[Rfam]
RNA sequence: UUGCCGCUCACGCCGAGCCUCUGGUUGGUCGCCAGGGGGCGGGGGACCCAAGUAGUUGGGGCUAAUCGUGCCGUGGUGGCAUGAGACGCAGGCUCUUUCAGCGUCAGCCCGUCAGCUAACCCCGCAGGCCGACGAAAGAGGAAUA
Numbered sequence: 001u002u003g004c005c006g007c008u009c010a011c012g013c014c015g016a017g018c019c020u021c022u023g024g025u026u027g028g029u030c031g032c033c034a035g036g037g038g039g040c041g042g043g044g045g046a047c048c049c050a051a052g053u054a055g056u057u058g059g060g061g062c063u064a065a066u067c068g069u070g071c072c073g074u075g076g077u078g079g080c081a082u083g084a085g086a087c088g089c090a091g092g093c094u095c096u097u098u099c100a101g102c103g104u105c106a107g108c109c110c111g112u113c114a115g116c117u118a119a120c121c122c123c124g125c126a127g128g129c130c131g132a133c134g135a136a137a138g139a140g141g142a143a144u145a
Stems, first nucleotide, its partner, number of pairs: 012129003018038008039125006049058002059110003067083004086104004
RNA: c-di-AMP riboswitch aptamer (ydaO/yuaA leader)